[Rfam]
RNA sequence: GGUCAAGGAACAAAGGCUAAAUUCGCCACGUCCUGUGGCAACGCCUUUGUGACCAACAUCGUGUUGG
Numbered sequence: 001g002g003u004c005a006a007g008g009a010a011c012a013a014a015g016g017c018u019a020a021a022u023u024c025g026c027c028a029c030g031u032c033c034u035g036u037g038g039c040a041a042c043g044c045c046u047u048u049g050u051g052a053c054c055a056a057c058a059u060c061g062u063g064u065u066g067g
Base pairs, nucleotide, nucleotide: 011049012048013047014046015045016044017043025039026038027037028036029035053067054066055065056064057063
RNA: Bacillaceae-1 RNA
Organism: Lentibacillus sp. CBA3610